RNA sequence: UUGAGGGUGGCUGAUGACCACGCUGCUGCUGAGAUUCUGUGAUUGUUCAGUUUCAAAGUAAACGCACUGACGCUCUCUGG
Numbered sequence: 001u002u003g004a005g006g007g008u009g010g011c012u013g014a015u016g017a018c019c020a021c022g023c024u025g026c027u028g029c030u031g032a033g034a035u036u037c038u039g040u041g042a043u044u045g046u047u048c049a050g051u052u053u054c055a056a057a058g059u060a061a062a063c064g065c066a067c068u069g070a071c072g073c074u075c076u077c078u079g080g
Base pairs, nucleotide, nucleotide: 005075006074007073008072009071010021013018029050030049031048032047033046
A member of the RNA family "Small nucleolar RNA U105B" from Chrysochloris asiatica, 80 nucleotides long. It is annotated as a C/D-box small nucleolar RNA. The family has 13 seed sequences and 132 matches in Rfam 15.1. The match comes from Rfam's covariance-model search (79 bits).